[Rfam]
RNA sequence: AUCGUUCAUCCACUCCACAGGAGGGACGGAAGUAGGGAAUCAUCCCGAAGGAACGCACC
Numbered sequence: 001a002u003c004g005u006u007c008a009u010c011c012a013c014u015c016c017a018c019a020g021g022a023g024g025g026a027c028g029g030a031a032g033u034a035g036g037g038a039a040u041c042a043u044c045c046c047g048a049a050g051g052a053a054c055g056c057a058c059c
Base pairs, nucleotide, nucleotide: 003055004054005053006052007051009026010025011024029056035046036045037044
Shown here is a 59-nucleotide RNA sequence from Zarconia navalis, a member of the family "Glutamine riboswitch aptamer (glnA leader)".
For this family Rfam cites "Structural and Dynamic Basis for Low-Affinity, High-Selectivity Binding of L-Glutamine by the Glutamine Riboswitch" (Ren et al., Cell Rep, 2015).
It scores 53 bits against the family's covariance model.